[Rfam]
RNA sequence: CGUCCAUCCAGAGCGGCCGAGAGACCGGGCUCGUCGACGCCGCAGCAACCACGCGUGACCACGCGGGGUGCUACCGCCCGGAUCGAUGGGAG
Numbered sequence: 001c002g003u004c005c006a007u008c009c010a011g012a013g014c015g016g017c018c019g020a021g022a023g024a025c026c027g028g029g030c031u032c033g034u035c036g037a038c039g040c041c042g043c044a045g046c047a048a049c050c051a052c053g054c055g056u057g058a059c060c061a062c063g064c065g066g067g068g069u070g071c072u073a074c075c076g077c078c079c080g081g082a083u084c085g086a087u088g089g090g091a092g
Stems, first nucleotide, its partner, number of pairs: 001092001003090006013043005021032003026080004044072004049068002076084001
SAM riboswitch aptamer (S box leader): a 92-nucleotide sequence from Pseudonocardia sulfidoxydans. The base pairs follow the family's consensus structure, which is taken from published work. Taxonomically the source falls in Pseudonocardia sulfidoxydans (Bacteria, Actinomycetota, Actinomycetes, Pseudonocardiaceae). It scores 56 bits against the family's covariance model.